RNA sequence: CUUGAUCAGAACAAUUCGGACUUCAGAUCAUCCUCGGGAAGGUGCGCCCGUUUACGCCGCCUCGCCGAGGCU
Numbered sequence: 001c002u003u004g005a006u007c008a009g010a011a012c013a014a015u016u017c018g019g020a021c022u023u024c025a026g027a028u029c030a031u032c033c034u035c036g037g038g039a040a041g042g043u044g045c046g047c048c049c050g051u052u053u054a055c056g057c058c059g060c061c062u063c064g065c066c067g068a069g070g071c072u
Stems, first nucleotide, its partner, number of pairs: 003030005008023002040053005
The family of this 72-nucleotide RNA sequence from Mycobacterium simulans is "Actinobacteria sRNA Ms_AS-8". The base pairs follow the family's consensus structure. The match comes from Rfam's covariance-model search (71 bits).